[Rfam]
RNA sequence: GGCUUUUUCCAGCGGCAUUCCUCCUCCCGUCCGCUGGAAAUUAAGAGACCGGACAUCUCCUCCCGUUCGGUCUCCUUCUCGAAAAGGCCGGGUUCCUCGCCCGGCCUUUUUCU
Numbered sequence: 001g002g003c004u005u006u007u008u009c010c011a012g013c014g015g016c017a018u019u020c021c022u023c024c025u026c027c028c029g030u031c032c033g034c035u036g037g038a039a040a041u042u043a044a045g046a047g048a049c050c051g052g053a054c055a056u057c058u059c060c061u062c063c064c065g066u067u068c069g070g071u072c073u074c075c076u077u078c079u080c081g082a083a084a085a086g087g088c089c090g091g092g093u094u095c096c097u098c099g100c101c102c103g104g105c106c107u108u109u110u111u112c113u
Stems, first nucleotide, its partner, number of pairs: 007039009045074009084108008